The family of this 74-nucleotide RNA sequence from Thalassococcus sp. S3 is "Singlet oxygen resistance RNA X".
About the family: SorX (RSs2461)like SorY is a singlet oxygen induced sRNA that counteracts oxidative stress by targeting mRNA for a transporter in Rhodobacter.
It is annotated as a small RNA.
Pairs were carried over by alignment from the consensus structure.
The match comes from Rfam's covariance-model search (62 bits).
Taxonomically the source falls in Thalassococcus (Bacteria, Pseudomonadati, Alphaproteobacteria, Roseobacteraceae).

[Rfam]
RNA sequence: UAUUCCAACAUGUCUGUGUUUUGACAUGUACCUCCCUGUUGGACUGGGCCGGACUUAGAUGUCCGGCCCUCUUU
Numbered sequence: 001u002a003u004u005c006c007a008a009c010a011u012g013u014c015u016g017u018g019u020u021u022u023g024a025c026a027u028g029u030a031c032c033u034c035c036c037u038g039u040u041g042g043a044c045u046g047g048g049c050c051g052g053a054c055u056u057a058g059a060u061g062u063c064c065g066g067c068c069c070u071c072u073u074u
Stems, first nucleotide, its partner, number of pairs: 008029007047068008